[Rfam]
RNA sequence: CUCUUAUUCAGAGCAGGCGGAGGGACAGACCCGAUGAAGCCCAGCAACCUCACAUUUGUGAAAAGGUGCUAACCUGAUGCAAGGAUUAAUCCUUGAACAAUAAGAG
Numbered sequence: 001c002u003c004u005u006a007u008u009c010a011g012a013g014c015a016g017g018c019g020g021a022g023g024g025a026c027a028g029a030c031c032c033g034a035u036g037a038a039g040c041c042c043a044g045c046a047a048c049c050u051c052a053c054a055u056u057u058g059u060g061a062a063a064a065g066g067u068g069c070u071a072a073c074c075u076g077a078u079g080c081a082a083g084g085a086u087u088a089a090u091c092c093u094u095g096a097a098c099a100a101u102a103a104g105a106g
Stems, first nucleotide, its partner, number of pairs: 001106008013042001016041003022032003026079002029075001043070004048066002050061004080095006

A member of the RNA family "SAM riboswitch aptamer (S box leader)" from Ornithinibacillus halotolerans, 106 nucleotides long. It scores 75 bits against the family's covariance model. The source organism's lineage runs through Bacteria, Bacillati, Bacillota, Caryophanales and Ornithinibacillus. The base pairs follow the family's consensus structure, which is taken from published work.